[Rfam]
RNA: tRNA
Organism: Rufibacter ruber
RNA sequence: GCCCAGGUGGCGGAAUCGGUAGACGCGUUGGUCUCAAACACCAAUAUCUUCACGGAUGUGCCGGUUCGACUCCGGCCCUGGGUA
Numbered sequence: 001g002c003c004c005a006g007g008u009g010g011c012g013g014a015a016u017c018g019g020u021a022g023a024c025g026c027g028u029u030g031g032u033c034u035c036a037a038a039c040a041c042c043a044a045u046a047u048c049u050u051c052a053c054g055g056a057u058g059u060g061c062c063g064g065u066u067c068g069a070c071u072c073c074g075g076c077c078c079u080g081g082g083u084a
Stems, first nucleotide, its partner, number of pairs: 001083007010026003028044005060076005